[Rfam]
RNA sequence: GAAACUCGCCUUUCAGGCAUCCUCUCCUAAAACUUAUACAGCCGUCCUUCGGGGCGGCUUUUUUUUGUCCAGU
Numbered sequence: 001g002a003a004a005c006u007c008g009c010c011u012u013u014c015a016g017g018c019a020u021c022c023u024c025u026c027c028u029a030a031a032a033c034u035u036a037u038a039c040a041g042c043c044g045u046c047c048u049u050c051g052g053g054g055c056g057g058c059u060u061u062u063u064u065u066u067g068u069c070c071a072g073u
Stems, first nucleotide, its partner, number of pairs: 008018004041058007